[Rfam]
RNA sequence: AUCGCCGGCAGGCGGGGGUUUGAUAGAAAGCACCAAGCACAAUGCGCGAGUCGAUGGACAAAAACCGAAUACAAGGCGCGAGCCCCGGACGAGCGGGCAAGGUACCGCGAAGUCCAUAUCCAUCACGCGUGCGAAGCGUAGAUUCGGCGACUGUGCGCGGAAGGCGGCUGAGCU
Numbered sequence: 001a002u003c004g005c006c007g008g009c010a011g012g013c014g015g016g017g018g019u020u021u022g023a024u025a026g027a028a029a030g031c032a033c034c035a036a037g038c039a040c041a042a043u044g045c046g047c048g049a050g051u052c053g054a055u056g057g058a059c060a061a062a063a064a065c066c067g068a069a070u071a072c073a074a075g076g077c078g079c080g081a082g083c084c085c086c087g088g089a090c091g092a093g094c095g096g097g098c099a100a101g102g103u104a105c106c107g108c109g110a111a112g113u114c115c116a117u118a119u120c121c122a123u124c125a126c127g128c129g130u131g132c133g134a135a136g137c138g139u140a141g142a143u144u145c146g147g148c149g150a151c152u153g154u155g156c157g158c159g160g161a162a163g164g165c166g167g168c169u170g171a172g173c174u
Stems, first nucleotide, its partner, number of pairs: 002015005029174003033170001037165002043159006049152005065147006076139003082132002085129001087115004093108004
Group II catalytic intron D1-D4-3: a 174-nucleotide sequence. It is one of the family's seed sequences. The base pairs follow the family's consensus structure.